The family of this 142-nucleotide RNA sequence from Bacillus cereus is "SAM riboswitch aptamer (S box leader)".
RNA sequence: CUCUUAUCAAGAGCAGGUGGAGGGAUUUGGCCCGAUGAAGCCCAGCAACCGACCGUAAUACCAUUGUGAAAUGGGGCGUUUAUGACGCCAAAAGGCACGGUGCUAAUUCCAGCAGAAAGUAAAACUUUCUGGCAGAUAAGAG
Numbered sequence: 001c002u003c004u005u006a007u008c009a010a011g012a013g014c015a016g017g018u019g020g021a022g023g024g025a026u027u028u029g030g031c032c033c034g035a036u037g038a039a040g041c042c043c044a045g046c047a048a049c050c051g052a053c054c055g056u057a058a059u060a061c062c063a064u065u066g067u068g069a070a071a072u073g074g075g076g077c078g079u080u081u082a083u084g085a086c087g088c089c090a091a092a093a094g095g096c097a098c099g100g101u102g103c104u105a106a107u108u109c110c111a112g113c114a115g116a117a118a119g120u121a122a123a124a125c126u127u128u129c130u131g132g133c134a135g136a137u138a139a140g141a142g
Stems, first nucleotide, its partner, number of pairs: 001142008013043001016042003022033003027112004044104004049100002051096001053094001108134001113131006

Rfam's curators put it in the seed alignment.